[Rfam]
Nucleotides: 101
Base pairs, nucleotide, nucleotide: 006089007088008087009086010085011053012052013051014050017027018026019025035046036045037044038043059082060081061080062079063076064075065074066073
Number, partner (000 for none) and nucleotide at each position: 001000a002000g003000c004000u005000a006089c007088c008087a009086c010085a011053a012052g013051g014050g015000g016000u017027g018026c019025c020000u021000u022000u023000u024000u025019g026018g027017c028000u029000g030000a031000g032000a033000c034000u035046g036045a037044g038043c039000g040000a041000u042000u043038g044037c045036u046035c047000u048000a049000a050014c051013u052012c053011u054000u055000u056000g057000a058000a059082c060081c061080u062079g063076u064075a065074a066073g067000u068000u069000a070000a071000u072000a073066c074065u075064u076063g077000c078000g079062c080061a081060g082059g083000g084000a085010u086009g087008u088007g089006g090000a091000u092000g093000g094000a095000a096000a097000c098000c099000g100000a101000c
Description
Rfam assigns this 101-nucleotide RNA sequence from Paenisporosarcina cavernae to the family "TPP riboswitch aptamer (THI element)". From the family's description: Vitamin B(1) in its active form thiamin pyrophosphate (TPP) is an essential coenzyme that is synthesised by coupling of pyrimidine and thiazole moieties in bacteria. It scores 63 bits against the family's covariance model. NCBI's taxonomy places the organism under Bacteria, Bacillota, Bacilli, Caryophanaceae, Paenisporosarcina.